[Rfam]
RNA sequence: AAAACAAGCCGUCUUAUCGUCCCGUCCCGAAACUUCGGGAUCUGGAAGGAAAGUCCGGACACCAAAGUGCAAGCAUAGCGGGUAACACCCGUCGCUCUGUCUAUUACGUCAGUGUUGGACCAGUGCAACAGAAAGCAAGUACAGUUAGGCUGUAGUGAAAUCAGGUAAACUCUAUGCGGUGCAAUACCAUGUAUACCAAGGCUCGAAUGUGGCACGCAUGAUCUUGGAGGGUUGGUAGCUUGAUCCCAAUAGUAAUAUUGGGGCCAGAUAAAUGAUAAGAUUCCGUCUCGACGGGAACAGAAUCCGGCUUAUAGGCUUGUUUUAUUU
Numbered sequence: 001a002a003a004a005c006a007a008g009c010c011g012u013c014u015u016a017u018c019g020u021c022c023c024g025u026c027c028c029g030a031a032a033c034u035u036c037g038g039g040a041u042c043u044g045g046a047a048g049g050a051a052a053g054u055c056c057g058g059a060c061a062c063c064a065a066a067g068u069g070c071a072a073g074c075a076u077a078g079c080g081g082g083u084a085a086c087a088c089c090c091g092u093c094g095c096u097c098u099g100u101c102u103a104u105u106a107c108g109u110c111a112g113u114g115u116u117g118g119a120c121c122a123g124u125g126c127a128a129c130a131g132a133a134a135g136c137a138a139g140u141a142c143a144g145u146u147a148g149g150c151u152g153u154a155g156u157g158a159a160a161u162c163a164g165g166u167a168a169a170c171u172c173u174a175u176g177c178g179g180u181g182c183a184a185u186a187c188c189a190u191g192u193a194u195a196c197c198a199a200g201g202c203u204c205g206a207a208u209g210u211g212g213c214a215c216g217c218a219u220g221a222u223c224u225u226g227g228a229g230g231g232u233u234g235g236u237a238g239c240u241u242g243a244u245c246c247c248a249a250u251a252g253u254a255a256u257a258u259u260g261g262g263g264c265c266a267g268a269u270a271a272a273u274g275a276u277a278a279g280a281u282u283c284c285g286u287c288u289c290g291a292c293g294g295g296a297a298c299a300g301a302a303u304c305c306g307g308c309u310u311a312u313a314g315g316c317u318u319g320u321u322u323u324a325u326u327u
Stems, first nucleotide, its partner, number of pairs: 001323010011312001012280007020046003024042001027039002051310003055307005060181004073177005078092005093117001094115002097112003118172002123170002125166002140154006185237004196227005207219004244263008
This 327-nucleotide sequence from Mesohalobacter halotolerans belongs to the Rfam family "Bacterial RNase P class A". It is annotated as a ribozyme. The match comes from Rfam's covariance-model search (188 bits). Rfam links the family to the GO terms tRNA processing, dimeric ribonuclease P complex and ribonuclease P activity.